Annotation: The record is a 97-nucleotide sequence from Suicoccus acidiformans, which matches "S10-Clostridia ribosomal protein leader" in Rfam.

RNA sequence: UGACAGCGUUGAAAUAGGAGGUUGCGACACGCUAGGAUAUGUUGCCACUGGCGGUCGGUAAUUCCUGUGGAGCAAGUCAUUUUCUAAAAAUUGACGA
Numbered sequence: 001u002g003a004c005a006g007c008g009u010u011g012a013a014a015u016a017g018g019a020g021g022u023u024g025c026g027a028c029a030c031g032c033u034a035g036g037a038u039a040u041g042u043u044g045c046c047a048c049u050g051g052c053g054g055u056c057g058g059u060a061a062u063u064c065c066u067g068u069g070g071a072g073c074a075a076g077u078c079a080u081u082u083u084c085u086a087a088a089a090a091u092u093g094a095c096g097a
Stems, first nucleotide, its partner, number of pairs: 014068003018064003025057004076095004081090002
For this family Rfam cites "Discovery of 20 novel ribosomal leader candidates in bacteria and archaea" (Eckert and Weinberg, BMC Microbiol, 2020). By type it is a cis-regulatory leader. NCBI's taxonomy places the organism under Bacteria, Bacillota, Bacilli, Lactobacillales, Suicoccus.